[Rfam]
RNA sequence: GCACUGGUUUAGCUCAGUGGUUACUUCGAACGAUGUUUGUUCUCUGUUCCUUUGCGGGAUCGAACCACGGGCGCUGUCCAGUGUUUUC
Numbered sequence: 001g002c003a004c005u006g007g008u009u010u011a012g013c014u015c016a017g018u019g020g021u022u023a024c025u026u027c028g029a030a031c032g033a034u035g036u037u038u039g040u041u042c043u044c045u046g047u048u049c050c051u052u053u054g055c056g057g058g059a060u061c062g063a064a065c066c067a068c069g070g071g072c073g074c075u076g077u078c079c080a081g082u083g084u085u086u087u088c
Stems, first nucleotide, its partner, number of pairs: 002083006012072004017068004025064005
The record is an 88-nucleotide RNA sequence from Dissostichus mawsoni, which matches "Vault RNA" in Rfam. The family has 73 seed sequences and 2,873 matches in Rfam 15.1. Lineage of the source: Eukaryota > Vertebrata > Ctenosquamata > Eupercaria > Dissostichus. The match comes from Rfam's covariance-model search (70 bits). Rfam describes the family as follows. This family of RNAs are found as part of the enigmatic vault ribonucleoprotein complex. The complex consists of a major vault protein (MVP), two minor vault proteins (VPARP and TEP1), and several small untranslated RNA molecules. It has been suggested that the vault complex is involved in drug resistance. It is annotated as a non-coding RNA gene.